[Rfam]
RNA: Bacterial RNase P class A
Organism: Mycolicibacterium grossiae
RNA sequence: CGAGUUGGCCGGGCGGCCGCGGACACCGGGUUCUCCCGGUGUUCGAGGAAAGUCCGGACUUCACAGAGCAGGGUGAUUGCCAACGGCAAUCCGAGGUGACUCGCGGGAAAGUGCCACAGAGAACAGACCGCCGCCGGCGGGUCCUAGGACUCGACGGGGGUAAGGGUGAAACGGUGCGGUAAGAGCGCACCAGCACCCCGGGUGACCGGGGUGGCUCGGCAAACCCCACCCGAAGCAAGGCCAAGAAGGCCGCGACCCGGUCGCGGCUGCGCAGGUGUCCGAGGGUUGCUCGCCCGAGCCUGCGGGUAGGCCGCUCGAGGCACCCGGUGACGGUGUGUCCAGAUGGAUGGUCGCCGCCCCGCCUCCCGGCGGGGAACAGAAUCCGGCUUACAGGCCAACUCGUCCG
Number, nucleotide and partner (000 for none) at each position: 001c402002g401003a400004g399005u398006u397007g396008g395009c394010c393011g391012g355013g354014c353015g352016g351017c350018c349019g000020c045021g044022g043023a042024c041025a040026c039027c038028g037029g000030g000031u000032u000033c000034u000035c000036c000037c028038g027039g026040u025041g024042u023043u022044c021045g020046a000047g000048g000049a000050a389051a388052g387053u000054c386055c385056g384057g383058a382059c235060u234061u233062c232063a000064c000065a000066g291067a290068g289069c288070a000071g231072g230073g229074u228075g227076a090077u089078u088079g087080c086081c000082a000083a000084c000085g000086g080087c079088a078089a077090u076091c105092c103093g102094a101095g100096g000097u000098g000099a000100c095101u094102c093103g092104c000105g091106g226107g225108a000109a000110a000111g224112u223113g220114c219115c218116a000117c000118a000119g000120a000121g000122a000123a000124c000125a000126g000127a000128c165129c164130g161131c160132c159133g000134c157135c156136g155137g000138c153139g152140g151141g150142u149143c148144c000145u000146a000147g000148g143149a142150c141151u140152c139153g138154a000155c136156g135157g134158g000159g132160g131161u130162a000163a000164g129165g128166g000167u000168g000169a000170a000171a000172c000173g191174g190175u189176g188177c187178g186179g000180u000181a000182a000183g000184a000185g000186c178187g177188c176189a175190c174191c173192a000193g215194c213195a212196c211197c210198c209199c208200g207201g206202g000203u000204g000205a000206c201207c200208g199209g198210g197211g196212u195213g194214g000215c193216u000217c000218g115219g114220c113221a000222a000223a112224c111225c107226c106227c075228a074229c073230c072231c071232g062233a061234a060235g059236c000237a000238a000239g312240g311241c310242c309243a000244a000245g000246a000247a000248g000249g303250c302251c000252g300253c000254g000255a000256c000257c000258c000259g000260g000261u000262c000263g000264c000265g000266g000267c000268u000269g000270c000271g000272c000273a000274g000275g000276u000277g000278u000279c000280c000281g000282a000283g295284g294285g293286u292287u000288g069289c068290u067291c066292g286293c285294c284295c283296g000297a000298g000299c000300c252301u000302g250303c249304g000305g000306g000307u000308a000309g242310g241311c240312c239313g000314c000315u000316c000317g000318a000319g339320g338321c337322a336323c335324c333325c332326g331327g000328u000329g000330a000331c326332g325333g324334u000335g323336u322337g321338u320339c319340c000341a000342g000343a000344u000345g000346g000347a000348u000349g018350g017351u016352c015353g014354c013355c012356g000357c000358c000359c000360c000361g000362c000363c000364u000365c000366c000367c000368g000369g000370c000371g000372g000373g000374g000375a000376a000377c000378a000379g000380a000381a000382u058383c057384c056385g055386g054387c052388u051389u050390a000391c011392a000393g010394g009395c008396c007397a006398a005399c004400u003401c002402g001403u000404c000405c000406g000